[Rfam]
RNA sequence: UCUUACAUCGUGUGAGAGACUUAUGCGGAUAACAACCGCGUACCCAGGAGAACUGGGAUUGGACUCCUUUAAAGGAGAAAACAAAUG
Numbered sequence: 001u002c003u004u005a006c007a008u009c010g011u012g013u014g015a016g017a018g019a020c021u022u023a024u025g026c027g028g029a030u031a032a033c034a035a036c037c038g039c040g041u042a043c044c045c046a047g048g049a050g051a052a053c054u055g056g057g058a059u060u061g062g063a064c065u066c067c068u069u070u071a072a073a074g075g076a077g078a079a080a081a082c083a084a085a086u087g
Base pairs, nucleotide, nucleotide: 001017002016003015004014005013006012022042023041024040025039026038027037028036043057044056045055046054
Overview:
Rfam assigns this 87-nucleotide RNA to the family "freshwater-2 RNA". The family's consensus secondary structure is taken from published work. Rfam's curators put it in the seed alignment. Rfam classes the family as a cis-regulatory element.